[Rfam]
The family of this 78-nucleotide RNA from Stackebrandtia nassauensis is "6C RNA". For this family Rfam cites "Identification of 22 candidate structured RNAs in bacteria using the CMfinder comparative genomics pipeline" (Weinberg et al., Nucleic Acids Res, 2007). The base pairs follow the family's consensus structure, which is taken from published work. Gene Ontology term of the family: sporulation.
RNA sequence: GCGGGUCUGGCUCGUCAUCCCCCCCGGAGCCAGGCCCCUGACGGCCGCUGGAAUCCCCCCCUCCAGCGGCCGUCCUUU
Numbered sequence: 001g002c003g004g005g006u007c008u009g010g011c012u013c014g015u016c017a018u019c020c021c022c023c024c025c026g027g028a029g030c031c032a033g034g035c036c037c038c039u040g041a042c043g044g045c046c047g048c049u050g051g052a053a054u055c056c057c058c059c060c061c062u063c064c065a066g067c068g069g070c071c072g073u074c075c076u077u078u
Stems, first nucleotide, its partner, number of pairs: 003037011040074013